The family of this 125-nucleotide sequence from Brassica oleracea is "MIR9563 microRNA precursor family". The family's consensus secondary structure was predicted with RNAalifold.
[Rfam]
RNA sequence: AGAAAUUAAGAAACUGUUUCUUAACUUUUAACUAAAAAAACUAAGAACCGGUUCUUAAAAUCUUUAUUUAAGAAUUGGUUCUUAGUUUUUCUAGCUAAAAGUUAAGAAACAGAUUCUUAACUUCC
Numbered sequence: 001a002g003a004a005a006u007u008a009a010g011a012a013a014c015u016g017u018u019u020c021u022u023a024a025c026u027u028u029u030a031a032c033u034a035a036a037a038a039a040a041c042u043a044a045g046a047a048c049c050g051g052u053u054c055u056u057a058a059a060a061u062c063u064u065u066a067u068u069u070a071a072g073a074a075u076u077g078g079u080u081c082u083u084a085g086u087u088u089u090u091c092u093a094g095c096u097a098a099a100a101g102u103u104a105a106g107a108a109a110c111a112g113a114u115u116c117u118u119a120a121c122u123u124c125c
Stems, first nucleotide, its partner, number of pairs: 002124003006120007014112017032094003036090004041085007
Dot-bracket structure: .(((.(((((((.(((((((((((((((((.(((.((((.(((((((...............................))))))).)))).))).))))))))))))))))).))))))).))).